[Rfam]
RNA sequence: UGACUACAGGACGAAGCGAGUGGGUUAUGACCAUGCCUAGUGUGGUUCGGAACUCAGGAAAGUCCCCGGGCCACCUGUCUGCAGAGAUGCAGCAUCGAAAACGAUGGACUCUUUCGAGCGCAAGAGAAAUUUGGGCUGAGACACGUGUGGAGCCCUAGUAUCUGCGCUCCGUAAGUAAUUUGGCCAAACAACACAGUUAUUCACUUGGUCCAAUUGGGACUAACUGAACGGGGCUUAUAAUCCUGUGGUA
Numbered sequence: 001u002g003a004c005u006a007c008a009g010g011a012c013g014a015a016g017c018g019a020g021u022g023g024g025u026u027a028u029g030a031c032c033a034u035g036c037c038u039a040g041u042g043u044g045g046u047u048c049g050g051a052a053c054u055c056a057g058g059a060a061a062g063u064c065c066c067c068g069g070g071c072c073a074c075c076u077g078u079c080u081g082c083a084g085a086g087a088u089g090c091a092g093c094a095u096c097g098a099a100a101a102c103g104a105u106g107g108a109c110u111c112u113u114u115c116g117a118g119c120g121c122a123a124g125a126g127a128a129a130u131u132u133g134g135g136c137u138g139a140g141a142c143a144c145g146u147g148u149g150g151a152g153c154c155c156u157a158g159u160a161u162c163u164g165c166g167c168u169c170c171g172u173a174a175g176u177a178a179u180u181u182g183g184c185c186a187a188a189c190a191a192c193a194c195a196g197u198u199a200u201u202c203a204c205u206u207g208g209u210c211c212a213a214u215u216g217g218g219a220c221u222a223a224c225u226g227a228a229c230g231g232g233g234c235u236u237a238u239a240a241u242c243c244u245g246u247g248g249u250a
Base pairs, nucleotide, nucleotide: 003249004248005247006246007245008244009243010242011241014206015205016204018202019201021056022055023054024053025052026051060236061235062234064233065232066231067230080091081090082089083088093106094105095104096103097102111175116169117168118167119166120165121164125163126162133155134154135153136152143148208220209219210218211217

Shown here is a 250-nucleotide sequence from Tetracentron sinense, a member of the family "RNase MRP".
The base pairs follow the family's consensus structure, which is taken from published work.
The match comes from Rfam's covariance-model search (82 bits).